[Rfam]
RNA: S15-Halobacteria ribosomal protein leader
Organism: Halogeometricum sp. CBA1124
RNA sequence: ACGGGAACAGCACGGCCGCAAAUCUGACUCGCCGCCUCGGGCGGCUUGGGAUUGCGGAAGUGC
Numbered sequence: 001a002c003g004g005g006a007a008c009a010g011c012a013c014g015g016c017c018g019c020a021a022a023u024c025u026g027a028c029u030c031g032c033c034g035c036c037u038c039g040g041g042c043g044g045c046u047u048g049g050g051a052u053u054g055c056g057g058a059a060g061u062g063c
Stems, first nucleotide, its partner, number of pairs: 010063004016057006024050002031045006